The family of this 125-nucleotide RNA from Brassica carinata is "MIR9563 microRNA precursor family". Taxonomically the source falls in Brassica (Eukaryota, Viridiplantae, eudicotyledons, Brassiceae). It scores 109 bits against the family's covariance model.

RNA sequence: GGAAUAUAAAAACCUGUCUCUUAAUUUUUAACUAAAAACGAUAAGAACCGUCUCUUAAAACUCUUAUUUAAGAACCGGUUCUUCGCUUUUUUAGUUAAAAGUUAAGAGACAGGUUCUUAUAUUCU
Numbered sequence: 001g002g003a004a005u006a007u008a009a010a011a012a013c014c015u016g017u018c019u020c021u022u023a024a025u026u027u028u029u030a031a032c033u034a035a036a037a038a039c040g041a042u043a044a045g046a047a048c049c050g051u052c053u054c055u056u057a058a059a060a061c062u063c064u065u066a067u068u069u070a071a072g073a074a075c076c077g078g079u080u081c082u083u084c085g086c087u088u089u090u091u092u093a094g095u096u097a098a099a100a101g102u103u104a105a106g107a108g109a110c111a112g113g114u115u116c117u118u119a120u121a122u123u124c125u
Stems, first nucleotide, its partner, number of pairs: 001125009011115028043083005
Gene Ontology terms of the family: miRNA-mediated post-transcriptional gene silencing and RISC complex.